[Rfam]
RNA sequence: UUAGAGGAUUUGAAGACUUCCACUUGCAUACUUAGAGUAUUUGAAGACUUCAACUUGUAAACUUGAAGAAUUUGAAGACUUAGUU
Numbered sequence: 001u002u003a004g005a006g007g008a009u010u011u012g013a014a015g016a017c018u019u020c021c022a023c024u025u026g027c028a029u030a031c032u033u034a035g036a037g038u039a040u041u042u043g044a045a046g047a048c049u050u051c052a053a054c055u056u057g058u059a060a061a062c063u064u065g066a067a068g069a070a071u072u073u074g075a076a077g078a079c080u081u082a083g084u085u
Base pairs, nucleotide, nucleotide: 001083002082004081005080006079009076010075011074012073013072014071017068018067019066020065025059026058027057028056032053033052035050036049037048
Shown here is an 85-nucleotide sequence from Solanum tuberosum, a member of the family "MIR8024 microRNA precursor family". Gene Ontology terms of the family: RISC complex and miRNA-mediated post-transcriptional gene silencing. The organism belongs to Solanum, within Eukaryota.